[Rfam]
RNA sequence: GCCGGGCCUAGGCUGGCCCCCGAAUCCCCGGACCCCUUCACCGGGCCGGCCCGGCGAUCCUUGAUGAAGG
Numbered sequence: 001g002c003c004g005g006g007c008c009u010a011g012g013c014u015g016g017c018c019c020c021c022g023a024a025u026c027c028c029c030g031g032a033c034c035c036c037u038u039c040a041c042c043g044g045g046c047c048g049g050c051c052c053g054g055c056g057a058u059c060c061u062u063g064a065u066g067a068a069g070g
Base pairs, nucleotide, nucleotide: 001055002054003053004052005051006050007049008048011021012020027045028044029043030042031041035070036069037068038067039066040065
int-alpA RNA: a 70-nucleotide RNA sequence from Plasticicumulans acidivorans. It scores 47 bits against the family's covariance model. Acidobacteria (1 example), Planctomycetes (1 example), Proteobacteria. It is annotated as a small RNA.